The record is an 80-nucleotide RNA sequence from Vibrio viridaestus, which matches "RpsF leader" in Rfam.
Rfam classes the family as a cis-regulatory leader.
The match comes from Rfam's covariance-model search (50 bits).
The pairing is the family consensus, mapped onto this sequence.
Conserved and widely distributed to many bacterial species RNA structure. It precedes operon containing rpsF, which encodes ribosomal protein S6. The motif also precedes operon containing rpsR, which encodes ribosomal protein S18. The RNA was shown to interact with S6:S18 protein dimer in vitro.
[Rfam]
RNA sequence: GUCACUUACUAUCGUUCCUUGCUUCCUCUGGAUGACCGGGCCAAGUUUGGAAGCUGAAUAAUCCGUAAGGAGCAAACAUG
Numbered sequence: 001g002u003c004a005c006u007u008a009c010u011a012u013c014g015u016u017c018c019u020u021g022c023u024u025c026c027u028c029u030g031g032a033u034g035a036c037c038g039g040g041c042c043a044a045g046u047u048u049g050g051a052a053g054c055u056g057a058a059u060a061a062u063c064c065g066u067a068a069g070g071a072g073c074a075a076a077c078a079u080g
Stems, first nucleotide, its partner, number of pairs: 014073007021054006029043003